[Rfam]
RNA sequence: ACGGCAUGAUGGGGACAUUUUAUGAUGAGAUCCUUUAAUCGUUCCCAUGAUCUCUGGAAAUGCUCACCAUCUUGUUGCAAGAAGCUAGUGAGAGCUCAUCUUAUCUGGUUAU
Numbered sequence: 001a002c003g004g005c006a007u008g009a010u011g012g013g014g015a016c017a018u019u020u021u022a023u024g025a026u027g028a029g030a031u032c033c034u035u036u037a038a039u040c041g042u043u044c045c046c047a048u049g050a051u052c053u054c055u056g057g058a059a060a061u062g063c064u065c066a067c068c069a070u071c072u073u074g075u076u077g078c079a080a081g082a083a084g085c086u087a088g089u090g091a092g093a094g095c096u097c098a099u100c101u102u103a104u105c106u107g108g109u110u111a112u
Stems, first nucleotide, its partner, number of pairs: 001112001003110002005107002058073001
This 112-nucleotide sequence from Cephalotus follicularis belongs to the Rfam family "Plant small nucleolar RNA R71". The match comes from Rfam's covariance-model search (46 bits). The literature on the family includes a 2003 paper in Trends Plant Sci by Brown et al., "Plant snoRNAs: functional evolution and new modes of gene expression". The family has 25 seed sequences and 278,378 matches in Rfam 15.1.